[Rfam]
RNA sequence: UCCAGCGGCAGUCAGCUGUGCAGACCUUUACCGUGUCUGAUCUAGUGUUACUCUGCUGGAAAAGAAAGGCUCUGCUGUUCAGGUUGUGUUCUGAGUCUUGCUGUUUUAGCAGUCUCGUAACAUGGCCAUGGUGGUGUCUUGUCCGUCUGAGAGUGGGCUGGUCACUAAUCCCAUGUGGGCAGCCCUAGUCUGUGGGCAAACAGU
Numbered sequence: 001u002c003c004a005g006c007g008g009c010a011g012u013c014a015g016c017u018g019u020g021c022a023g024a025c026c027u028u029u030a031c032c033g034u035g036u037c038u039g040a041u042c043u044a045g046u047g048u049u050a051c052u053c054u055g056c057u058g059g060a061a062a063a064g065a066a067a068g069g070c071u072c073u074g075c076u077g078u079u080c081a082g083g084u085u086g087u088g089u090u091c092u093g094a095g096u097c098u099u100g101c102u103g104u105u106u107u108a109g110c111a112g113u114c115u116c117g118u119a120a121c122a123u124g125g126c127c128a129u130g131g132u133g134g135u136g137u138c139u140u141g142u143c144c145g146u147c148u149g150a151g152a153g154u155g156g157g158c159u160g161g162u163c164a165c166u167a168a169u170c171c172c173a174u175g176u177g178g179g180c181a182g183c184c185c186u187a188g189u190c191u192g193u194g195g196g197c198a199a200a201c202a203g204u
Stems, first nucleotide, its partner, number of pairs: 001060008011051002015046004020041001021039005069137002072134006083127001085125001087124001088121003092117002095114001097112001099111004139199008155185003159181002162178004
A member of the RNA family "Small nucleolar RNA SNORA74" from Bagarius yarrelli, 204 nucleotides long.
It scores 111 bits against the family's covariance model.
The literature on the family includes a 1998 paper in RNA by Bortolin and Kiss, "Human U19 intron-encoded snoRNA is processed from a long primary transcript that possesses little potential for protein coding".
Its Rfam clan is "SNORA74 clan".
From the family's description: U19 belongs to the H/ACA class of snoRNAs. snoRNAs bind a number of proteins (including dyskerin, Gar1p and Nop10p in the case of the H/ACA class) to form snoRNP complexes. This class are thought to guide the sites of modification of uridines to pseudouridines by forming direct base pairing interactions with substrate RNAs. Targets may include ribosomal and spliceosomal RNAs but the exact functions of many snoRNAs, including U19, are not confirmed. Co-precipitation of U19 snoRNA with RNase MRP RNA suggests that U19 may be involved in pre-rRNA processing.
Rfam classes the family as an H/ACA-box small nucleolar RNA.
The family's consensus secondary structure was predicted with PFOLD.
NCBI's taxonomy places the organism under Eukaryota, Chordata, Actinopteri, Neopterygii, Bagarius.